[Rfam]
RNA: SAM riboswitch aptamer (S box leader)
Organism: Rasiella rasia
RNA sequence: AAGUUAUCAAGAAAGGUUGAGGGAAUAGACCCUUUGAUGCCUUAGCAACCUCCUAAUGUUAUAUUGGGGAAGGUGCUACAUUCUAUCCGUAUCUUCGGAAUAGAUAACAC
Numbered sequence: 001a002a003g004u005u006a007u008c009a010a011g012a013a014a015g016g017u018u019g020a021g022g023g024a025a026u027a028g029a030c031c032c033u034u035u036g037a038u039g040c041c042u043u044a045g046c047a048a049c050c051u052c053c054u055a056a057u058g059u060u061a062u063a064u065u066g067g068g069g070a071a072g073g074u075g076c077u078a079c080a081u082u083c084u085a086u087c088c089g090u091a092u093c094u095u096c097g098g099a100a101u102a103g104a105u106a107a108c109a110c
Stems, first nucleotide, its partner, number of pairs: 003108006013043005021032003026085004044077004049073002051069006081102001086099004